[Rfam]
RNA sequence: UUGUGUGUGAGGAGUAAGAGUGAUAUGAAAAAGCCUUUGGAGUCGAAACAUGGCAAGACGCCCAGAGGCUUUUCAUUU
Dot-bracket structure: ............................(((((((...((.(((............)))..))...))))))).....

This 78-nucleotide sequence from Rippkaea orientalis belongs to the Rfam family "Cyano-1 RNA". The match comes from Rfam's covariance-model search (50 bits). The organism belongs to Rippkaea orientalis, within Bacteria. Pairs were carried over by alignment from the consensus structure, which is taken from published work.